The family of this 138-nucleotide RNA sequence is "Small nucleolar RNA SNORA47".
Its family is annotated with nucleolus and RNA processing in the Gene Ontology.
The family's consensus secondary structure was predicted with WAR.
The literature on the family includes a 2001 paper in EMBO J by Huttenhofer et al., "RNomics: an experimental approach that identifies 201 candidates for novel, small, non-messenger RNAs in mouse".
RNA sequence: UGGAGGACUGAGAAGGUGAGGCAGUUUUGCCCCGUGCUGCCUUCCACCGGUUAAGACCUCCAAAAUCGAAGGGCUGCCCAGGCAGAGGAUGUCCCCUUGCCACCCUUGGAGGGGCAGCGCUGUGCUGGCCGACAUUUG
Numbered sequence: 001u002g003g004a005g006g007a008c009u010g011a012g013a014a015g016g017u018g019a020g021g022c023a024g025u026u027u028u029g030c031c032c033c034g035u036g037c038u039g040c041c042u043u044c045c046a047c048c049g050g051u052u053a054a055g056a057c058c059u060c061c062a063a064a065a066u067c068g069a070a071g072g073g074c075u076g077c078c079c080a081g082g083c084a085g086a087g088g089a090u091g092u093c094c095c096c097u098u099g100c101c102a103c104c105c106u107u108g109g110a111g112g113g114g115c116a117g118c119g120c121u122g123u124g125c126u127g128g129c130c131g132a133c134a135u136u137u138g
Stems, first nucleotide, its partner, number of pairs: 002061005015048004019042007081130003086126002089123003097117005103112002